[Rfam]
RNA sequence: UGGGGUUGUCCUAAGUCAAACUAUUUCAACUUUGACCAGGUUUGUAGAAAAAUACCAAGAUAUCCAACACUAAACAAAUGCAAUAUGAAAAUAUAUUUGAUAGUAGUCCUAAUGAUACUAGUUUGGUGUUGAAUAAGUUGGUGUUUUUUUCUACAAACCCGAUCAAAAUUGACAAAGUUUGACUUAUGACAGACAGAC
Numbered sequence: 001u002g003g004g005g006u007u008g009u010c011c012u013a014a015g016u017c018a019a020a021c022u023a024u025u026u027c028a029a030c031u032u033u034g035a036c037c038a039g040g041u042u043u044g045u046a047g048a049a050a051a052a053u054a055c056c057a058a059g060a061u062a063u064c065c066a067a068c069a070c071u072a073a074a075c076a077a078a079u080g081c082a083a084u085a086u087g088a089a090a091a092u093a094u095a096u097u098u099g100a101u102a103g104u105a106g107u108c109c110u111a112a113u114g115a116u117a118c119u120a121g122u123u124u125g126g127u128g129u130u131g132a133a134u135a136a137g138u139u140g141g142u143g144u145u146u147u148u149u150u151c152u153a154c155a156a157a158c159c160c161g162a163u164c165a166a167a168a169u170u171g172a173c174a175a176a177g178u179u180u181g182a183c184u185u186a187u188g189a190c191a192g193a194c195a196g197a198c
Base pairs, nucleotide, nucleotide: 006192007191008190009189012186013185014184015183016182017181018180019179020178021177022176024174026172031167032166033165034164035163045153046152047151048150049149050148051147052146053143054142055141057139058138061135062134063133065131066130070126071125072124073123074122075121
Dot-bracket structure: .....((((..(((((((((((.(.(....(((((.........(((((((((((.((..(((.((...((((((.............................................))))))...)).)))..)).)))..)))))))).........)))))....).).)))))))))))..))))......
The record is a 198-nucleotide RNA sequence from Brachypodium distachyon, which matches "MIR1435 microRNA precursor family" in Rfam. It scores 105 bits against the family's covariance model. The source organism's lineage runs through Eukaryota, Tracheophyta, Mesangiospermae, Petrosaviidae and Brachypodium. Gene Ontology terms of the family: miRNA-mediated post-transcriptional gene silencing and RISC complex.